[Rfam]
RNA sequence: CUCGACAAAGGCAAACCUCCCGUGAGGGAGGGACGCAAAGCCACGGGACUUCUGUGACGAAGUCAGCCGAGCCACCGAAG
Numbered sequence: 001c002u003c004g005a006c007a008a009a010g011g012c013a014a015a016c017c018u019c020c021c022g023u024g025a026g027g028g029a030g031g032g033a034c035g036c037a038a039a040g041c042c043a044c045g046g047g048a049c050u051u052c053u054g055u056g057a058c059g060a061a062g063u064c065a066g067c068c069g070a071g072c073c074a075c076c077g078a079a080g
Stems, first nucleotide, its partner, number of pairs: 001080001003077002011036002016031006034066001040072002044069003047064003
RNA: c-di-GMP-I-GGC riboswitch aptamer
Organism: Deinococcus sp. RL